[Rfam]
RNA sequence: GUGGUACUCAAACUGUGGGGGCACUUCCGUUUUACGAAGGGAAGUGCCGCCAUGUUUUGAGUGUUAC
Numbered sequence: 001g002u003g004g005u006a007c008u009c010a011a012a013c014u015g016u017g018g019g020g021g022c023a024c025u026u027c028c029g030u031u032u033u034a035c036g037a038a039g040g041g042a043a044g045u046g047c048c049g050c051c052a053u054g055u056u057u058u059g060a061g062u063g064u065u066a067c
Base pairs, nucleotide, nucleotide: 004064005063006062007061008060009059010058011057012056015053016052017051018050020048021047022046023045024044025043026042027041028040
Shown here is a 67-nucleotide RNA from Bos taurus, a member of the family "mir-290 microRNA precursor family". Gene Ontology terms of the family: miRNA-mediated post-transcriptional gene silencing and RISC complex. The literature on the family includes a 2003 paper in Dev Cell by Houbaviy et al., "Embryonic stem cell-specific MicroRNAs". Its Rfam clan is "mir-290 clan". Pairs were carried over by alignment from the consensus structure, which was predicted with RNAalifold. Taxonomically the source falls in Bos (Eukaryota, Bilateria, Laurasiatheria, Bovidae).